[Rfam]
RNA sequence: GUGGCCAUCUUACUGGGCAGCAUUGGAUGGUGUCCGAUCUCUAAUACUGCCUGGUAAUGAUGACUGU
Numbered sequence: 001g002u003g004g005c006c007a008u009c010u011u012a013c014u015g016g017g018c019a020g021c022a023u024u025g026g027a028u029g030g031u032g033u034c035c036g037a038u039c040u041c042u043a044a045u046a047c048u049g050c051c052u053g054g055u056a057a058u059g060a061u062g063a064c065u066g067u
Base pairs, nucleotide, nucleotide: 002066003065004064006062007061008060009059010057011056012055013054014053015052016051017050018049019048020047022045023044024043025042026041027040
Rfam assigns this 67-nucleotide sequence from Octodon degus to the family "mir-8/mir-141/mir-200 microRNA precursor family".
Rfam 15.1 lists 2,669 matches to the family in 883 species.
It scores 68 bits against the family's covariance model.
The organism belongs to Octodon, within Eukaryota.
The family is grouped with related families in Rfam's "mir-8 microRNA precursor clan".
Its family is annotated with miRNA-mediated post-transcriptional gene silencing and RISC complex in the Gene Ontology.